[Rfam]
RNA: T-box leader
Organism: Neobacillus vireti
RNA sequence: AUAAAAGCUAUGAAAAGGACAUGAAUUAUUUUUUCGGUUUUCAGAGAGGGAAGGAGAGCUGCGAUCUUCCUAACUUAGAAAAAUAGUUUACCGCCUUGAAGCUGUAUUGGGGAACUAAAGUAUCCAAUAACGUUUAAUGCUGCGUUAAAGCACCAAAGCCAUAAGGUAUUUAUUUCUUAUGGGAAAUUGGGUGGAACCACGGGUUUAAACACGCUCGUCCCUUGC
Numbered sequence: 001a002u003a004a005a006a007g008c009u010a011u012g013a014a015a016a017g018g019a020c021a022u023g024a025a026u027u028a029u030u031u032u033u034u035c036g037g038u039u040u041u042c043a044g045a046g047a048g049g050g051a052a053g054g055a056g057a058g059c060u061g062c063g064a065u066c067u068u069c070c071u072a073a074c075u076u077a078g079a080a081a082a083a084u085a086g087u088u089u090a091c092c093g094c095c096u097u098g099a100a101g102c103u104g105u106a107u108u109g110g111g112g113a114a115c116u117a118a119a120g121u122a123u124c125c126a127a128u129a130a131c132g133u134u135u136a137a138u139g140c141u142g143c144g145u146u147a148a149a150g151c152a153c154c155a156a157a158g159c160c161a162u163a164a165g166g167u168a169u170u171u172a173u174u175u176c177u178u179a180u181g182g183g184a185a186a187u188u189g190g191g192u193g194g195a196a197c198c199a200c201g202g203g204u205u206u207a208a209a210c211a212c213g214c215u216c217g218u219c220c221c222u223u224g225c
Stems, first nucleotide, its partner, number of pairs: 007102002015097004026085001029082003037074003048071006105129007131144003159182007189221003199218005